RNA sequence: AGUACAGCCUCGCGGUGCUGUCGGACCCCCGACCUGACAGCACCGCGAGGCCUUCUU
Numbered sequence: 001a002g003u004a005c006a007g008c009c010u011c012g013c014g015g016u017g018c019u020g021u022c023g024g025a026c027c028c029c030c031g032a033c034c035u036g037a038c039a040g041c042a043c044c045g046c047g048a049g050g051c052c053u054u055c056u057u
Stems, first nucleotide, its partner, number of pairs: 002056001004054001007051016
RNA: F6 TB sRNA
Organism: Pseudonocardia sp.